Description
The family of this 82-nucleotide sequence from Cynoglossus semilaevis is "mir-2944 microRNA precursor family". Pairs were carried over by alignment from the consensus structure, which was predicted with RNAalifold. Lineage of the source: Eukaryota > Actinopteri > Neoteleostei > Euacanthomorphacea > Cynoglossus. The match comes from Rfam's covariance-model search (58 bits). Rfam links the family to the GO terms miRNA-mediated post-transcriptional gene silencing and RISC complex.
RNA sequence: AGGAGAAAAAGUUUGAGAACCACUGGUGUAAUAUAUAUAUAUAUAUAUAUAUUACACCAGUGGUUCUCAAACUUUUUCUCCU
Numbered sequence: 001a002g003g004a005g006a007a008a009a010a011g012u013u014u015g016a017g018a019a020c021c022a023c024u025g026g027u028g029u030a031a032u033a034u035a036u037a038u039a040u041a042u043a044u045a046u047a048u049a050u051a052u053u054a055c056a057c058c059a060g061u062g063g064u065u066c067u068c069a070a071a072c073u074u075u076u077u078c079u080c081c082u
Base pairs, nucleotide, nucleotide: 003080004079005078006077007076008075009074010073011072015068016067017066018065019064020063021062023060024059025058027056028055029054030053031052032051033050034049035048